[Rfam]
RNA sequence: ACAUGGCGGAGGCCAGAAACCGCUUGAAAAAACGGGGUGUAACCUGAAAAACCAUACGAGUAGGGGAUUA
Numbered sequence: 001a002c003a004u005g006g007c008g009g010a011g012g013c014c015a016g017a018a019a020c021c022g023c024u025u026g027a028a029a030a031a032a033c034g035g036g037g038u039g040u041a042a043c044c045u046g047a048a049a050a051a052c053c054a055u056a057c058g059a060g061u062a063g064g065g066g067a068u069u070a
Stems, first nucleotide, its partner, number of pairs: 006023004036053003043064002